[Rfam]
RNA sequence: UGCAAAUGAUGCCAAUCUCACGAUGGUCUGCCGAGCCCAGCACGGGCCUGACGACACUGCCACAUGGCUCUCCUGAUGCAGGCCC
Number, nucleotide and partner (000 for none) at each position: 001u080002g079003c078004a077005a000006a000007u000008g000009a000010u000011g000012c000013c000014a000015a000016u000017c000018u000019c000020a000021c000022g000023a000024u000025g000026g000027u000028c000029u000030g000031c000032c000033g000034a000035g000036c000037c000038c000039a000040g000041c000042a000043c000044g000045g000046g000047c000048c000049u000050g000051a000052c000053g000054a000055c000056a000057c000058u000059g000060c000061c000062a000063c000064a000065u000066g000067g000068c000069u000070c000071u000072c000073c000074u000075g000076a000077u004078g003079c002080a001081g000082g000083c000084c000085c000